About this RNA: This 198-nucleotide RNA sequence from Nocardioides mesophilus belongs to the Rfam family "c-di-AMP riboswitch aptamer (ydaO/yuaA leader)". The organism belongs to Nocardioides, within Bacteria.
RNA sequence: CUGGUCCCAUCCCUCAAACAUCAUCGGGCAGGAGUGGGGGACCCACCGCAGUUCGCGGCCGCAUCCUCGUCACGCCUCAGGGCGCGAUCGAGGUUCAGCCGCUCGGGGUGAAGUCUCCGGUCAGUUCCUCGACCGGCGGCAGGGCACCUUUCAGCCCUAACCCGACAGCUCACCUCACAGGCGUGGAAAGGCCACUUC
Number, nucleotide and partner (000 for none) at each position: 001c180002u000003g000004g000005u033006c032007c031008c000009a000010u000011c000012c000013c000014u000015c000016a000017a000018a000019c000020a000021u000022c000023a000024u000025c000026g000027g000028g000029c000030a000031g007032g006033a005034g178035u177036g176037g175038g174039g173040g000041a000042c000043c000044c105045a000046c000047c000048g000049c000050a000051g000052u000053u000054c000055g000056c000057g000058g000059c000060c000061g000062c000063a000064u000065c000066c000067u000068c000069g000070u000071c000072a000073c000074g000075c000076c000077u000078c000079a000080g000081g000082g000083c000084g000085c000086g000087a000088u000089c000090g000091a000092g000093g000094u000095u000096c000097a000098g000099c000100c000101g000102c000103u000104c000105g044106g163107g162108g161109u000110g000111a000112a000113g000114u139115c138116u000117c136118c135119g134120g133121u132122c131123a000124g000125u000126u000127c000128c000129u000130c000131g122132a121133c120134c119135g118136g117137c000138g115139g114140c000141a000142g157143g156144g155145c154146a000147c000148c000149u000150u000151u000152c000153a000154g145155c144156c143157c142158u000159a000160a000161c108162c107163c106164g000165a000166c000167a000168g000169c000170u000171c000172a000173c039174c038175u037176c036177a035178c034179a000180g001181g000182c000183g000184u000185g000186g000187a000188a000189a000190g000191g000192c000193c000194a000195c000196u000197u000198c000